[Rfam]
Nucleotides: 178
Base pairs, nucleotide, nucleotide: 008171009170010169011168017084018083019082020081021080025076033069034068035067036066037065038064039063088117089116090113091112092111093110094109095108096107097106099104118144119143122140123139124138125137126136127135146163147162148161149160150159151158
Number, partner (000 for none) and nucleotide at each position: 001000a002000a003000a004000a005000a006000u007000c008171g009170a010169a011168g012000a013000g014000g015000u016000u017084g018083c019082g020081a021080c022000u023000g024000a025076c026000a027000u028000u029000a030000g031000u032000a033069a034068g035067u036066u037065g038064a039063c040000c041000g042000a043000g044000u045000c046000a047000c048000c049000g050000u051000u052000a053000u054000g055000a056000u057000a058000u059000u060000g061000a062000a063039g064038u065037u066036a067035a068034c069033u070000a071000a072000a073000a074000g075000g076025g077000g078000a079000c080021g081020u082019c083018g084017c085000c086000g087000a088117a089116g090113u091112g092111c093110u094109g095108u096107u097106a098000u099104u100000g101000a102000c103000g104099g105000u106097u107096a108095a109094c110093a111092g112091u113090g114000u115000u116089c117088u118144g119143g120000g121000a122140c123139g124138u125137a126136g127135c128000u129000u130000a131000a132000u133000a134000u135127g136126c137125u138124g139123c140122g141000g142000a143119c144118u145000g146163u147162c148161a149160c150159g151158g152000a153000c154000c155000c156000a157000c158151c159150c160149g161148u162147g163146g164000a165000g166000c167000g168011c169010u170009u171008u172000a173000u174000u175000c176000a177000a178000a